[Rfam]
RNA sequence: GCUGUGGAUUAGGUAGUUUCAUGUUGUUGGGCUCUCCGAUUCAAACGCAAGGACAUCAAACUACCUGAUUUACUCC
Dot-bracket structure: ...((((((((((((((((..((((.(((.(..............).))).))))..))))))))))))))))...
This 76-nucleotide RNA sequence from Origma solitaria belongs to the Rfam family "mir-196 microRNA precursor family". Rfam 15.1 lists 1,813 matches to the family in 642 species. The family's consensus secondary structure was predicted with PFOLD.